[Rfam]
RNA sequence: UGGAUGUGGAGAGAGCAAAGUGCCUAAAGAAUGGCUCCUUUGCAAUAAACACAUUCAACAGCAACUUGGGCUUACUCCUCACGGGGGGCAGGAUACCAUGACCUUCCUGUGAUAUUACGCCAUAUAUAU
Numbered sequence: 001u002g003g004a005u006g007u008g009g010a011g012a013g014a015g016c017a018a019a020g021u022g023c024c025u026a027a028a029g030a031a032u033g034g035c036u037c038c039u040u041u042g043c044a045a046u047a048a049a050c051a052c053a054u055u056c057a058a059c060a061g062c063a064a065c066u067u068g069g070g071c072u073u074a075c076u077c078c079u080c081a082c083g084g085g086g087g088g089c090a091g092g093a094u095a096c097c098a099u100g101a102c103c104u105u106c107c108u109g110u111g112a113u114a115u116u117a118c119g120c121c122a123u124a125u126a127u128a129u
Stems, first nucleotide, its partner, number of pairs: 002056007015043006022035003070121001072119001082111002085104003089100002091097002
Source information
Small nucleolar RNA SNORA11: a 129-nucleotide sequence from Cnephaeus nilssonii. For this family Rfam cites "A novel experimental approach for systematic identification of box H/ACA snoRNAs from eukaryotes" (Gu et al., Nucleic Acids Res, 2005). By type it is an H/ACA-box small nucleolar RNA. Rfam describes the family as follows. U107 (SNORA11) is a member of the H/ACA class of snoRNAs that guide the sites of modification of uridines to pseudouridines. This snoRNA was identified by RT-PCR from blood cells and its expression confirmed by Northern blot analysis. There is no predicted target for this guide snRNA.